[Rfam]
RNA sequence: GUAUUCGGGUAAUCGCUGGAAUAGCAAUGUUUCAGAGGAAAGUCCAUGCUCGCACGGUACUGAAAUGUCCGUAGUGUUUGUGCUCGGUGAAAAAAUAAGCCGAGGCCCGCUUAGGCGGUGAUGGCGAGUGACACACCUAAGUCUUUGAUAUGGUGUUAGCUCUGAAAGUGCCACAGUGACGUAGUCUUUUUGGAAACAAAGAGAGUGGAACGAGGUAAACCCCACAAGCGAGCAACCCAAAUUUUGGUAGGGGCACUUUGUUCACGGAAUAACAACGUAGAACAGAGGCGAAUAGUUCGUAGACAGAUGGUUAUCGCUCUUGUAUCCGUUAAACCUGGCGGUAUAGGAGUACAAAACAUGGCUUAUAGAA
Numbered sequence: 001g002u003a004u005u006c007g008g009g010u011a012a013u014c015g016c017u018g019g020a021a022u023a024g025c026a027a028u029g030u031u032u033c034a035g036a037g038g039a040a041a042g043u044c045c046a047u048g049c050u051c052g053c054a055c056g057g058u059a060c061u062g063a064a065a066u067g068u069c070c071g072u073a074g075u076g077u078u079u080g081u082g083c084u085c086g087g088u089g090a091a092a093a094a095a096u097a098a099g100c101c102g103a104g105g106c107c108c109g110c111u112u113a114g115g116c117g118g119u120g121a122u123g124g125c126g127a128g129u130g131a132c133a134c135a136c137c138u139a140a141g142u143c144u145u146u147g148a149u150a151u152g153g154u155g156u157u158a159g160c161u162c163u164g165a166a167a168g169u170g171c172c173a174c175a176g177u178g179a180c181g182u183a184g185u186c187u188u189u190u191u192g193g194a195a196a197c198a199a200a201g202a203g204a205g206u207g208g209a210a211c212g213a214g215g216u217a218a219a220c221c222c223c224a225c226a227a228g229c230g231a232g233c234a235a236c237c238c239a240a241a242u243u244u245u246g247g248u249a250g251g252g253g254c255a256c257u258u259u260g261u262u263c264a265c266g267g268a269a270u271a272a273c274a275a276c277g278u279a280g281a282a283c284a285g286a287g288g289c290g291a292a293u294a295g296u297u298c299g300u301a302g303a304c305a306g307a308u309g310g311u312u313a314u315c316g317c318u319c320u321u322g323u324a325u326c327c328g329u330u331a332a333a334c335c336u337g338g339c340g341g342u343a344u345a346g347g348a349g350u351a352c353a354a355a356a357c358a359u360g361g362c363u364u365a366u367a368g369a370a
Base pairs, nucleotide, nucleotide: 004370005369006368007366008315009314010313011312012311013310014309016035017034018033019032020031021030040364041363042362044361045360046359047358048357049232050231051230052229053228054072055071056070057069059068060067078227079226080225081224082223083104084103085102086101087100088099105122106120107118108117109116110115123222124221126162127161128160129159134155135154136153137152141149142148143147168220169219170216171215172214185204186203187202188201189200190199191198192197236252237251238250256287257286258285259284260283261282262281288300289299290298291297292296317349318348319347320346321345322344323343324342325341
RNA: Bacterial RNase P class B
Organism: Brochothrix thermosphacta